[Rfam]
RNA sequence: GGAAACAGAAGAGGAGCGUUAACUAGGUAGUGAACUCGAGGAGGCCAUUCUCCAGCGACAGUUCAUGAGGGAGAUUAACGCCGAGGCUACAGGAUCAUUGGCAGAUCCUGUGGUCGGUCGUUCAGGCUGAAUCCUGAUGACUGUCACCUUUUUUUGGUGGAGAGCUUCUGGUGAG
Numbered sequence: 001g002g003a004a005a006c007a008g009a010a011g012a013g014g015a016g017c018g019u020u021a022a023c024u025a026g027g028u029a030g031u032g033a034a035c036u037c038g039a040g041g042a043g044g045c046c047a048u049u050c051u052c053c054a055g056c057g058a059c060a061g062u063u064c065a066u067g068a069g070g071g072a073g074a075u076u077a078a079c080g081c082c083g084a085g086g087c088u089a090c091a092g093g094a095u096c097a098u099u100g101g102c103a104g105a106u107c108c109u110g111u112g113g114u115c116g117g118u119c120g121u122u123c124a125g126g127c128u129g130a131a132u133c134c135u136g137a138u139g140a141c142u143g144u145c146a147c148c149u150u151u152u153u154u155u156g157g158u159g160g161a162g163a164g165c166u167u168c169u170g171g172u173g174a175g
Base pairs, nucleotide, nucleotide: 006170007169008168009167010166011165016081017080018079019078020077021076022075024073030066031065032064033063034062035061036060085115086114087113088112089111090110091109092108093107094106095105096104116142117141118140119139122137123136124135125134126133144160145159146158147157148156
RNA: Lysine riboswitch aptamer